Description
A member of the RNA family "Small nucleolar RNA SNORA14" from Mastacembelus armatus, 133 nucleotides long. ACA14 is a member of the H/ACA class of snoRNA that guide the sites of modification of uridines to pseudouridines. By type it is an H/ACA-box small nucleolar RNA.
RNA sequence: GAGCAUCCUUGAAAACCCCCCAGUUGCUCUUGGUAGCGUCUGGGACAAGAAAGGAUGCAAGAUCAAUCUUAGAAUCAUCCAAAACUGGGAGUUGGUGUUAGUAGCUCUCAGUUAUUUCACCUCUAAGACAGAA
Numbered sequence: 001g002a003g004c005a006u007c008c009u010u011g012a013a014a015a016c017c018c019c020c021c022a023g024u025u026g027c028u029c030u031u032g033g034u035a036g037c038g039u040c041u042g043g044g045a046c047a048a049g050a051a052a053g054g055a056u057g058c059a060a061g062a063u064c065a066a067u068c069u070u071a072g073a074a075u076c077a078u079c080c081a082a083a084a085c086u087g088g089g090a091g092u093u094g095g096u097g098u099u100a101g102u103a104g105c106u107c108u109c110a111g112u113u114a115u116u117u118c119a120c121c122u123c124u125a126a127g128a129c130a131g132a133a
Stems, first nucleotide, its partner, number of pairs: 003058004009050002019044005025038003063132002067128007083113007091105002096101001